[Rfam]
RNA sequence: CUCGAUAAUGGCAAACCAGAAGCGAUUCUGGGGCGCAAAGUCACAGGUCCCUUGUGGAUGGCUGGGCUACCGAAA
Numbered sequence: 001c002u003c004g005a006u007a008a009u010g011g012c013a014a015a016c017c018a019g020a021a022g023c024g025a026u027u028c029u030g031g032g033g034c035g036c037a038a039a040g041u042c043a044c045a046g047g048u049c050c051c052u053u054g055u056g057g058a059u060g061g062c063u064g065g066g067c068u069a070c071c072g073a074a075a
Stems, first nucleotide, its partner, number of pairs: 003072002011036002016031006034061001039068004044064003047059003
This 75-nucleotide sequence from Neptuniibacter caesariensis belongs to the Rfam family "c-di-GMP-I-GGC riboswitch aptamer". It scores 63 bits against the family's covariance model. Pairs were carried over by alignment from the consensus structure, which is taken from published work. The organism belongs to Neptuniibacter, within Bacteria.